[Rfam]
RNA: tpke11
RNA sequence: UAUUGAUAACCAGUACGGGCGUCGAGGUAACUCUGCGCCCGUGCACGCAUGUUGAGGGUAGCAAAAGCAUG
Numbered sequence: 001u002a003u004u005g006a007u008a009a010c011c012a013g014u015a016c017g018g019g020c021g022u023c024g025a026g027g028u029a030a031c032u033c034u035g036c037g038c039c040c041g042u043g044c045a046c047g048c049a050u051g052u053u054g055a056g057g058g059u060a061g062c063a064a065a066a067g068c069a070u071g
Stems, first nucleotide, its partner, number of pairs: 013044009024033003